[Rfam]
RNA sequence: ACACAGGGAAGGAGGUGGUCCGGCAAAUUGAGUGACUUAUGGACAUGUGAGGUGGCUGCCCGCUAGCAGCACCGGGGAAGUCGAGCACCGACCUCAGUGCGCUGGCGAAUUCCCCGCAGUCACCCGGCCCCCGAGCCCUUCGGUCCGUCCACCCAGGAACCAACGGCUCGGGGGUCGCCCACA
Numbered sequence: 001a002c003a004c005a006g007g008g009a010a011g012g013a014g015g016u017g018g019u020c021c022g023g024c025a026a027a028u029u030g031a032g033u034g035a036c037u038u039a040u041g042g043a044c045a046u047g048u049g050a051g052g053u054g055g056c057u058g059c060c061c062g063c064u065a066g067c068a069g070c071a072c073c074g075g076g077g078a079a080g081u082c083g084a085g086c087a088c089c090g091a092c093c094u095c096a097g098u099g100c101g102c103u104g105g106c107g108a109a110u111u112c113c114c115c116g117c118a119g120u121c122a123c124c125c126g127g128c129c130c131c132c133g134a135g136c137c138c139u140u141c142g143g144u145c146c147g148u149c150c151a152c153c154c155a156g157g158a159a160c161c162a163a164c165g166g167c168u169c170g171g172g173g174g175u176c177g178c179c180c181a182c183a
Base pairs, nucleotide, nucleotide: 014060015059016058017057018056019055061107062106063105064104065103066102067101069100070099071098072097074095075094076093125177126176127175128174129173130172131171132170133169134168135167136166137165139157140156142154143153

This 183-nucleotide RNA sequence from Mycolicibacterium doricum belongs to the Rfam family "Actinobacteria sRNA Ms_IGR-5". By type it is a small RNA.